[Rfam]
RNA sequence: UGGAUUGAUGGUGACUGCUGGUCGCGUGUGAGUCGUAUACGAUAAAUAUGUGUCUCGAGCUUGGAGAUCCAU
Numbered sequence: 001u002g003g004a005u006u007g008a009u010g011g012u013g014a015c016u017g018c019u020g021g022u023c024g025c026g027u028g029u030g031a032g033u034c035g036u037a038u039a040c041g042a043u044a045a046a047u048a049u050g051u052g053u054c055u056c057g058a059g060c061u062u063g064g065a066g067a068u069c070c071a072u
Stems, first nucleotide, its partner, number of pairs: 002070005
Record summary: Rfam assigns this 72-nucleotide RNA sequence from Camelus dromedarius to the family "Small nucleolar RNA SNORD113/SNORD114 family". Rfam 15.1 lists 5,721 matches to the family in 142 species. The family is grouped with related families in Rfam's "SNORD74 clan". About the family: The imprinted human domain at 14q32 contains two clusters of tandemly repeated small nucleolar RNAs named 14q(I) and 14q(II) snoRNAs. These two clusters are named SNORD113 and SNORD114 respectively in the HGNC approved gene symbol nomenclature. The snoRNAs found in both clusters are clearly related and are represented here by a single family. NCBI's taxonomy places the organism under Eukaryota, Eumetazoa, Euteleostomi, Artiodactyla, Camelus. It scores 48 bits against the family's covariance model. A reference for the family is Cavaille et al. (2002), "Identification of tandemly-repeated C/D snoRNA genes at the imprinted human 14q32 domain reminiscent of those at the Prader-Willi/Angelman syndrome region", Hum Mol Genet. Its family is annotated with nucleolus and RNA processing in the Gene Ontology.